[Rfam]
RNA sequence: UCAAAGCCGUCUGGAGAGCCAUCGCCCCGCGCGAUGCACCGAAGGAGCAAGUCCGCUGCGGGCGCAGCGGAUGAAUCUCUCAGGUACCGAGGACAGGGGGAGCGGC
Numbered sequence: 001u002c003a004a005a006g007c008c009g010u011c012u013g014g015a016g017a018g019c020c021a022u023c024g025c026c027c028c029g030c031g032c033g034a035u036g037c038a039c040c041g042a043a044g045g046a047g048c049a050a051g052u053c054c055g056c057u058g059c060g061g062g063c064g065c066a067g068c069g070g071a072u073g074a075a076u077c078u079c080u081c082a083g084g085u086a087c088c089g090a091g092g093a094c095a096g097g098g099g100g101a102g103c104g105g106c
Stems, first nucleotide, its partner, number of pairs: 007100002010097004020036004038085003041081002045079003051072009